[Rfam]
RNA: Glycine riboswitch aptamer
Organism: Sphingomonas oleivorans
RNA sequence: GAUGAUCGCGAGGGAGAGCGCCGGCCCAAAGCCGGCCGCCGAAGGAGCAACCGCCCCGGAAUCUCUCAGGCAAAAGGACCGCGCGAUCAUA
Numbered sequence: 001g002a003u004g005a006u007c008g009c010g011a012g013g014g015a016g017a018g019c020g021c022c023g024g025c026c027c028a029a030a031g032c033c034g035g036c037c038g039c040c041g042a043a044g045g046a047g048c049a050a051c052c053g054c055c056c057c058g059g060a061a062u063c064u065c066u067c068a069g070g071c072a073a074a075a076g077g078a079c080c081g082c083g084c085g086a087u088c089a090u091a
Stems, first nucleotide, its partner, number of pairs: 006086005012080002020036004038071003041067002045065003051059002